[Rfam]
RNA sequence: CUCCCCGAAAUGUUUUUAGGAACAGCGUCGUGGUUGAGUCAUGUUCAGGUAGAGCUACUGAUAGGACUAGGGGGAGUCAAAUCCUACCAAAUUCUGACAAACUCCGAAUGGGGCAUGAUAUACACGGCAGUGAGGGCUGGGGUGCUAAGGUCCCAGUCCGAGAGGGGAACAACCCAGAGCAUCAGCUAAGGUCCCAAAAUAUAUGCUAAGUUGAACUAAGGAGGUCCGACUGCAGAGACAGCCAGGAUGUUAGCUUGGAAGCAGCUAUACAUUUAAAGAGUGCGUAACAGCUCACUGGUCGAGCGGGGCGGGCAUCGAUAAUAAACGGGCAUCAAGCAUAUUACCGAAGCUAUGCGAUAGUAGUAAUACGAUCGGUAGGGGAGCAUUCUCACAGGGGUGAAGGUUUGGCGUAAGCUGGGCUGGACUGGUGAGAAAAGCAAAU
Numbered sequence: 001c002u003c004c005c006c007g008a009a010a011u012g013u014u015u016u017u018a019g020g021a022a023c024a025g026c027g028u029c030g031u032g033g034u035u036g037a038g039u040c041a042u043g044u045u046c047a048g049g050u051a052g053a054g055c056u057a058c059u060g061a062u063a064g065g066a067c068u069a070g071g072g073g074g075a076g077u078c079a080a081a082u083c084c085u086a087c088c089a090a091a092u093u094c095u096g097a098c099a100a101a102c103u104c105c106g107a108a109u110g111g112g113g114c115a116u117g118a119u120a121u122a123c124a125c126g127g128c129a130g131u132g133a134g135g136g137c138u139g140g141g142g143u144g145c146u147a148a149g150g151u152c153c154c155a156g157u158c159c160g161a162g163a164g165g166g167g168a169a170c171a172a173c174c175c176a177g178a179g180c181a182u183c184a185g186c187u188a189a190g191g192u193c194c195c196a197a198a199a200u201a202u203a204u205g206c207u208a209a210g211u212u213g214a215a216c217u218a219a220g221g222a223g224g225u226c227c228g229a230c231u232g233c234a235g236a237g238a239c240a241g242c243c244a245g246g247a248u249g250u251u252a253g254c255u256u257g258g259a260a261g262c263a264g265c266u267a268u269a270c271a272u273u274u275a276a277a278g279a280g281u282g283c284g285u286a287a288c289a290g291c292u293c294a295c296u297g298g299u300c301g302a303g304c305g306g307g308g309c310g311g312g313c314a315u316c317g318a319u320a321a322u323a324a325a326c327g328g329g330c331a332u333c334a335a336g337c338a339u340a341u342u343a344c345c346g347a348a349g350c351u352a353u354g355c356g357a358u359a360g361u362a363g364u365a366a367u368a369c370g371a372u373c374g375g376u377a378g379g380g381g382a383g384c385a386u387u388c389u390c391a392c393a394g395g396g397g398u399g400a401a402g403g404u405u406u407g408g409c410g411u412a413a414g415c416u417g418g419g420c421u422g423g424a425c426u427g428g429u430g431a432g433a434a435a436a437g438c439a440a441a442u
Stems, first nucleotide, its partner, number of pairs: 001383006011024005026130001027128006037121001038119009052105001053103002059099002063095004070088002072085004134159010164175003179355004184351003190345003199342001201341006220316002224313005230307002232304002241299005247272003252266003273277001278293001282291002356373003360369003384437001386434007394426002402421008

Overview
The record is a 442-nucleotide part of an RNA from Dyadobacter helix, which matches "Bacterial large subunit ribosomal RNA" in Rfam. The organism belongs to Dyadobacter, within Bacteria. Pairs were carried over by alignment from the consensus structure, which is taken from published work. It scores 2700 bits against the family's covariance model.